[Rfam]
RNA: ybhL leader
Organism: Zhengella mangrovi
RNA sequence: CAGGCAUGCUGGAGUUCCGCCAGCGGCGCCUGGGUUCUUGAUCCCGACUCCCGACGGAACAGAA
Numbered sequence: 001c002a003g004g005c006a007u008g009c010u011g012g013a014g015u016u017c018c019g020c021c022a023g024c025g026g027c028g029c030c031u032g033g034g035u036u037c038u039u040g041a042u043c044c045c046g047a048c049u050c051c052c053g054a055c056g057g058a059a060c061a062g063a064a
Stems, first nucleotide, its partner, number of pairs: 014060006025051002031046004035041001